[Rfam]
The family of this 75-nucleotide RNA from Mycobacterium decipiens is "ASpks TB sRNA". The base pairs follow the family's consensus structure, which is taken from published work. Rfam classes the family as an antisense RNA.
RNA sequence: UUUGAUCGAACCCAACCACAGCGGCCGCUCGGACGGACGGCCUUGCCCAUAGGUGGCCAAUAGCGCCUGCGCUUC
Numbered sequence: 001u002u003u004g005a006u007c008g009a010a011c012c013c014a015a016c017c018a019c020a021g022c023g024g025c026c027g028c029u030c031g032g033a034c035g036g037a038c039g040g041c042c043u044u045g046c047c048c049a050u051a052g053g054u055g056g057c058c059a060a061u062a063g064c065g066c067c068u069g070c071g072c073u074u075c
Stems, first nucleotide, its partner, number of pairs: 016024002032070001038065002043060003047056003
Record summary
The organism belongs to Mycobacterium, within Bacteria.